Rfam assigns this 142-nucleotide sequence from Gilvimarinus sp. DA14 to the family "TPP riboswitch aptamer (THI element)".
[Rfam]
RNA sequence: GCGCACUUGUCGGGGCGCCUUGACCACCAAAAACCAGACACUGGACCCAGUGCUGCGUGGUACGAAGGCUGAGAUCGGUACGGCCGAACCCGUGGAACCUGAACAGGCUGGCACCUGCGGAGGGAACAAGUAGCGCCAGCAU
Numbered sequence: 001g002c003g004c005a006c007u008u009g010u011c012g013g014g015g016c017g018c019c020u021u022g023a024c025c026a027c028c029a030a031a032a033a034c035c036a037g038a039c040a041c042u043g044g045a046c047c048c049a050g051u052g053c054u055g056c057g058u059g060g061u062a063c064g065a066a067g068g069c070u071g072a073g074a075u076c077g078g079u080a081c082g083g084c085c086g087a088a089c090c091c092g093u094g095g096a097a098c099c100u101g102a103a104c105a106g107g108c109u110g111g112c113a114c115c116u117g118c119g120g121a122g123g124g125a126a127c128a129a130g131u132a133g134c135g136c137c138a139g140c141a142u
Stems, first nucleotide, its partner, number of pairs: 006130005011092004016086001017069005077085003098123003104117004